This 248-nucleotide RNA sequence from Aspergillus tanneri belongs to the Rfam family "Small nucleolar RNA snR191".
The match comes from Rfam's covariance-model search (50 bits).
On this family, see Badis et al., RNA 2003: "A snoRNA that guides the two most conserved pseudouridine modifications within rRNA confers a growth advantage in yeast".
Taxonomically the source falls in Aspergillus subgen. Circumdati (Eukaryota, Fungi, Pezizomycotina, Aspergillus).
It is annotated as an H/ACA-box small nucleolar RNA.
RNA sequence: UGCCAUCGCUAAGUCAAGGCUUCUUCCUGCGACUAUGUGUCGUGUACUUUACCAUGGGAGUUUUGUCUGUUACAGCUUUGGUAGAUUGACGCUGGCCCGCGCCGACCUUCUUUCUGAAGCUAGGCUGACUGGUUUUCGUUUUGAAAAUCGGUCGCAAAGGGCGAAGUUGUGCUCCGUUUAAGAGUUGAGUCUUGCCUCUGCCAUUUGGCGGCUUAGUAGCAAGUCUCUUAGUAACGCUCCACACAUUC
Dot-bracket structure: ..(((...........((((..(((((.(((((.....)))))............)))))....))))..........)))...........(.((((..(((.(.((((.....)))).).))).((((((((((((...)))))))))))).....)))))..((.(.....(((.........(((...(((..(((((....))))).......)))...)))......)))..).))......